[Rfam]
RNA sequence: UCGUAAUGGGUUGUCGUAUAGGAGGAGUACGCCUUGUUGGAGGAGACUCCGGUGCAAAUCCGGGCGCCCAUUACUCCAACCGCCCACAUGGGCGGUUUUUUUAUU
Numbered sequence: 001u002c003g004u005a006a007u008g009g010g011u012u013g014u015c016g017u018a019u020a021g022g023a024g025g026a027g028u029a030c031g032c033c034u035u036g037u038u039g040g041a042g043g044a045g046a047c048u049c050c051g052g053u054g055c056a057a058a059u060c061c062g063g064g065c066g067c068c069c070a071u072u073a074c075u076c077c078a079a080c081c082g083c084c085c086a087c088a089u090g091g092g093c094g095g096u097u098u099u100u101u102u103a104u105u
Base pairs, nucleotide, nucleotide: 003074004073005072006071007070008069009068012066013065032043033042034041035040048064049063050062051061052060078097079096080095081094082093083092084091085090

Rfam assigns this 105-nucleotide RNA sequence from Atopobium deltae to the family "Streptococcus sRNA SpF41". A search with the family's covariance model found it, with a score of 72 bits. Lineage of the source: Bacteria > Bacillati > Actinomycetota > Coriobacteriia > Atopobium. The family's RNA type in Rfam is small RNA.